A member of the RNA family "Group II catalytic intron D1-D4-3", 177 nucleotides long.
[Rfam]
RNA sequence: GUCGUCGUGAGGCGGGGUCUGAAGGAAGCCCAAUGCGAAAGCACGGGGCGACGAACAGAAACCGGAUAUGAGGUGUGACAGGCUUGGGACCACCGGGCACGUGACUAGGGAAGUCCUCCAUUCUCCCAUUGGGGCCUGUUUUAUAAAUCCGGCGUCUACGUGCGGAAGGUUACGUGU
Numbered sequence: 001g002u003c004g005u006c007g008u009g010a011g012g013c014g015g016g017g018u019c020u021g022a023a024g025g026a027a028g029c030c031c032a033a034u035g036c037g038a039a040a041g042c043a044c045g046g047g048g049c050g051a052c053g054a055a056c057a058g059a060a061a062c063c064g065g066a067u068a069u070g071a072g073g074u075g076u077g078a079c080a081g082g083c084u085u086g087g088g089a090c091c092a093c094c095g096g097g098c099a100c101g102u103g104a105c106u107a108g109g110g111a112a113g114u115c116c117u118c119c120a121u122u123c124u125c126c127c128a129u130u131g132g133g134g135c136c137u138g139u140u141u142u143a144u145a146a147a148u149c150c151g152g153c154g155u156c157u158a159c160g161u162g163c164g165g166a167a168g169g170u171u172a173c174g175u176g177u
Stems, first nucleotide, its partner, number of pairs: 002015005028177002031174001035170002041163005046157005062152006073144003077140007087116004093108001095106002
On this family, see Bonen and Vogel, Trends Genet 2001: "The ins and outs of group II introns". Rfam's curators put it in the seed alignment. Its family is annotated with Group II intron splicing in the Gene Ontology.